This 283-nucleotide RNA from Sciurus vulgaris belongs to the Rfam family "Mason-Pfizer monkey virus packaging signal". The match comes from Rfam's covariance-model search (159 bits). The family's RNA type in Rfam is cis-regulatory element. The family's consensus secondary structure was predicted with PFOLD. Rfam describes the family as follows. This family represents a group of sequences that are related to the Mason-Pfizer monkey virus (MPMV) packaging signal. The packaging signal is located in the 5' UTR and is required for specific RNA encapsidation.
[Rfam]
RNA sequence: UGGCGCCCAAUGGUGUGGCUUUGGAUAUGGGGGAAUUCGCGAGGGAAGAGGCGUCUAAGUGUUUGGCUAAAGGAAAAAAAGUGAAAGUCAGUUCGACAAAGAUCGCCACGGGAACCUGCCUCGCCACUCUUAAAGGUACAGUAGCACCUAACUAUGGGACAAGAAUUAAGUAAGCAUAAAGUUUUUGUUAAGCAAUUAAAAGAAGCUUUAAAGACACGGGGAGUAAAGGUUAAGAGUAAUGAACUUUUUAAGUUUUUUGACCUUAUUAAGGAAACCUGUCCGU
Numbered sequence: 001u002g003g004c005g006c007c008c009a010a011u012g013g014u015g016u017g018g019c020u021u022u023g024g025a026u027a028u029g030g031g032g033g034a035a036u037u038c039g040c041g042a043g044g045g046a047a048g049a050g051g052c053g054u055c056u057a058a059g060u061g062u063u064u065g066g067c068u069a070a071a072g073g074a075a076a077a078a079a080a081g082u083g084a085a086a087g088u089c090a091g092u093u094c095g096a097c098a099a100a101g102a103u104c105g106c107c108a109c110g111g112g113a114a115c116c117u118g119c120c121u122c123g124c125c126a127c128u129c130u131u132a133a134a135g136g137u138a139c140a141g142u143a144g145c146a147c148c149u150a151a152c153u154a155u156g157g158g159a160c161a162a163g164a165a166u167u168a169a170g171u172a173a174g175c176a177u178a179a180a181g182u183u184u185u186u187g188u189u190a191a192g193c194a195a196u197u198a199a200a201a202g203a204a205g206c207u208u209u210a211a212a213g214a215c216a217c218g219g220g221g222a223g224u225a226a227a228g229g230u231u232a233a234g235a236g237u238a239a240u241g242a243a244c245u246u247u248u249u250a251a252g253u254u255u256u257u258u259g260a261c262c263u264u265a266u267u268a269a270g271g272a273a274a275c276c277u278g279u280c281c282g283u
Stems, first nucleotide, its partner, number of pairs: 006033003013028003038050001040048001092132001101127001103126001107123001110120002142162001144160001147158004167210003170206002217259008227245002230242003268283001270281003